[Rfam]
RNA sequence: GAGAGAUGCCCUCCUGGAUGGGGAAUAUAGACCUUCGACAAGUCGUAUUAUCCCAGUUCAGAAGGGUAUUUCUCUUUUUCCCACGCCGCUACCCCAAAAUCACAUCGGUGGAUCCAG
Numbered sequence: 001g002a003g004a005g006a007u008g009c010c011c012u013c014c015u016g017g018a019u020g021g022g023g024a025a026u027a028u029a030g031a032c033c034u035u036c037g038a039c040a041a042g043u044c045g046u047a048u049u050a051u052c053c054c055a056g057u058u059c060a061g062a063a064g065g066g067u068a069u070u071u072c073u074c075u076u077u078u079u080c081c082c083a084c085g086c087c088g089c090u091a092c093c094c095c096a097a098a099a100u101c102a103c104a105u106c107g108g109u110g111g112a113u114c115c116a117g
Stems, first nucleotide, its partner, number of pairs: 002073011013061001015060003019056001021054003025048002028045001031043002099113002103110002
About this RNA: This 117-nucleotide sequence from Corynebacterium marinum belongs to the Rfam family "Actinobacteria sRNA Ms_IGR-7". The match comes from Rfam's covariance-model search (46 bits). On this family, see Li et al., RNA 2013: "Identification of small RNAs in Mycobacterium smegmatis using heterologous Hfq". The base pairs follow the family's consensus structure. The organism belongs to Corynebacterium marinum, within Bacteria.